[Rfam]
RNA sequence: CUGAAGGCCGCGUCCGGGUCAAUUCCCCGCUGCGGGAACACCCGAUCUCCCUGCUCGUCCCCUCCAACAUGGAGGUGCGGGCGGGAGAGCGCGUCACCAUCAG
Numbered sequence: 001c002u003g004a005a006g007g008c009c010g011c012g013u014c015c016g017g018g019u020c021a022a023u024u025c026c027c028c029g030c031u032g033c034g035g036g037a038a039c040a041c042c043c044g045a046u047c048u049c050c051c052u053g054c055u056c057g058u059c060c061c062c063u064c065c066a067a068c069a070u071g072g073a074g075g076u077g078c079g080g081g082c083g084g085g086a087g088a089g090c091g092c093g094u095c096a097c098c099a100u101c102a103g
Base pairs, nucleotide, nucleotide: 001103002102003101004100009093010092011091012090013089015044016043017042018041023038024037025036026035027034046088047087048086049085050084056083057082058081059080060079
Dot-bracket structure: ((((....(((((.((((....(((((......)))))..)))).(((((.....(((((..................)))))))))))))))......))))
This 103-nucleotide sequence belongs to the Rfam family "L4-Archaeoglobi ribosomal protein leades". The base pairs follow the family's consensus structure, which is taken from published work. It is annotated as a cis-regulatory leader. A reference for the family is Eckert and Weinberg (2020), "Discovery of 20 novel ribosomal leader candidates in bacteria and archaea", BMC Microbiol.